[Rfam]
Nucleotides: 080
Base pairs, nucleotide, nucleotide: 001080002079003078004077005076006075007074
Number, partner (000 for none) and nucleotide at each position: 001080g002079c003078u004077g005076g006075c007074a008000u009000a010000a011000u012000g013000a014000u015000g016000a017000g018000a019000c020000u021000u022000a023000u024000u025000g026000c027000c028000g029000u030000u031000u032000a033000c034000c035000c036000a037000u038000c039000u040000g041000a042000a043000u044000g045000u046000u047000u048000u049000u050000u051000g052000a053000u054000g055000u056000g057000u058000a059000u060000c061000u062000u063000u064000g065000a066000a067000u068000c069000u070000g071000a072000a073000a074007u075006g076005c077004c078003a079002g080001u

About this RNA:
Shown here is an 80-nucleotide sequence from Malurus elegans, a member of the family "Small nucleolar RNA SNORD87". The pairing is the family consensus, mapped onto this sequence. A reference for the family is Gogolevskaya et al. (2002), "U87 RNA, a novel C/D box small nucleolar RNA from mammalian cells", Gene. Rfam links the family to the GO terms RNA processing and nucleolus.